RNA sequence: AAAGUUCGGUUUCGAUUUAGAAUUCCUACGCUUUACCUUUUUUAUAUAUAAUAUUGGCAAGGCGUUUGAAUUCUGAAUCCGAAUCAAC
Numbered sequence: 001a002a003a004g005u006u007c008g009g010u011u012u013c014g015a016u017u018u019a020g021a022a023u024u025c026c027u028a029c030g031c032u033u034u035a036c037c038u039u040u041u042u043u044a045u046a047u048a049u050a051a052u053a054u055u056g057g058c059a060a061g062g063c064g065u066u067u068g069a070a071u072u073c074u075g076a077a078u079c080c081g082a083a084u085c086a087a088c
Stems, first nucleotide, its partner, number of pairs: 010082002014079008023070003028065007036057002